[Rfam]
RNA sequence: UGAGCAAGCUGGAUAGUCGCGUGCUCGUGCACGAGGAAAGUCCGAGCUCCAUAGGGCAGGGUGCUGGGUAACGCCCAGCGGAGGCGACUCCGAGGAAAGUGCAACAGAGAUAUACCGCCACGUAAGUGGUAAGGGUGGAAAGGCGAGGUAAGAGCUCACCAGCAGCCAGGUGACUGGCUGGCUCUGCAAACCCCACCUGGAGCAAGGCAAAUAGGAGAGCAUAUGUGGUGGCCCGCCACGCUCUCGGGUAUGCUGCUUGAGGCAGCAGGCAACUGCUGUCCUAGAUAGAUGACUAUCCAAGACAGAACUCGGCUUAUAGGCUUGCUCAACAG
Numbered sequence: 001u002g003a004g005c006a007a008g009c010u011g012g013a014u015a016g017u018c019g020c021g022u023g024c025u026c027g028u029g030c031a032c033g034a035g036g037a038a039a040g041u042c043c044g045a046g047c048u049c050c051a052u053a054g055g056g057c058a059g060g061g062u063g064c065u066g067g068g069u070a071a072c073g074c075c076c077a078g079c080g081g082a083g084g085c086g087a088c089u090c091c092g093a094g095g096a097a098a099g100u101g102c103a104a105c106a107g108a109g110a111u112a113u114a115c116c117g118c119c120a121c122g123u124a125a126g127u128g129g130u131a132a133g134g135g136u137g138g139a140a141a142g143g144c145g146a147g148g149u150a151a152g153a154g155c156u157c158a159c160c161a162g163c164a165g166c167c168a169g170g171u172g173a174c175u176g177g178c179u180g181g182c183u184c185u186g187c188a189a190a191c192c193c194c195a196c197c198u199g200g201a202g203c204a205a206g207g208c209a210a211a212u213a214g215g216a217g218a219g220c221a222u223a224u225g226u227g228g229u230g231g232c233c234c235g236c237c238a239c240g241c242u243c244u245c246g247g248g249u250a251u252g253c254u255g256c257u258u259g260a261g262g263c264a265g266c267a268g269g270c271a272a273c274u275g276c277u278g279u280c281c282u283a284g285a286u287a288g289a290u291g292a293c294u295a296u297c298c299a300a301g302a303c304a305g306a307a308c309u310c311g312g313c314u315u316a317u318a319g320g321c322u323u324g325c326u327c328a329a330c331a332g
Stems, first nucleotide, its partner, number of pairs: 001328010011317001012297007020033005038315003042312005047202004054234004059198005064078005080091004094193002099191002101187003115134002117130005142160002145157003162182001163180007206254004215245006225239005261280008
RNA: Bacterial RNase P class A
Organism: Calorimonas adulescens